[Rfam]
RNA: Streptomyces RNA 6106
Nucleotides: 087
Base pairs, nucleotide, nucleotide: 001018002017003016004015005014006013007012021044022043024041025040026036027035028034047084048083049082050081051080052079053078054077055076056075057074058073059072061070062069063068
Number, partner (000 for none) and nucleotide at each position: 001018a002017c003016g004015c005014c006013g007012c008000u009000c010000c011000g012007g013006c014005g015004g016003c017002g018001u019000c020000c021044g022043u023000g024041c025040u026036c027035c028034u029000u030000g031000a032000g033000g034028g035027g036026g037000g038000c039000c040025a041024g042000a043022a044021c045000a046000a047084g048083c049082g050081g051080g052079g053078g054077u055076g056075g057074u058073g059072c060000c061070g062069u063068g064000u065000c066000g067000g068063c069062g070061c071000a072059g073058c074057a075056c076055c077054a078053c079052c080051c081050c082049c083048g084047c085000g086000a087000u